Shown here is a 133-nucleotide RNA from Cicer arietinum, a member of the family "Small nucleolar RNA snoR74". Its family is annotated with nucleolus and RNA processing in the Gene Ontology. It is annotated as an H/ACA-box small nucleolar RNA. A reference for the family is Marker et al. (2002), "Experimental RNomics: identification of 140 candidates for small non-messenger RNAs in the plant Arabidopsis thaliana", Curr Biol. NCBI's taxonomy places the organism under Eukaryota, Mesangiospermae, Pentapetalae, Papilionoideae, Cicer. The family has 9 seed sequences and 1,404 matches in Rfam 15.1.

RNA sequence: AAAAAUUCAGAUUUCUGUUGUGCCGUUGUGACCAGGCCUGUCGUAACAUUCAGUUACAUAAAAUGUCCACUGUUAUUGGGCGAACCUCUGUUUAUUGGUUGUUACUGUAGGUUCAGUAAACGAUGGAAUACUU
Numbered sequence: 001a002a003a004a005a006u007u008c009a010g011a012u013u014u015c016u017g018u019u020g021u022g023c024c025g026u027u028g029u030g031a032c033c034a035g036g037c038c039u040g041u042c043g044u045a046a047c048a049u050u051c052a053g054u055u056a057c058a059u060a061a062a063a064u065g066u067c068c069a070c071u072g073u074u075a076u077u078g079g080g081c082g083a084a085c086c087u088c089u090g091u092u093u094a095u096u097g098g099u100u101g102u103u104a105c106u107g108u109a110g111g112u113u114c115a116g117u118a119a120a121c122g123a124u125g126g127a128a129u130a131c132u133u
Stems, first nucleotide, its partner, number of pairs: 005050001007048001011039001014036004066127004071122004082114006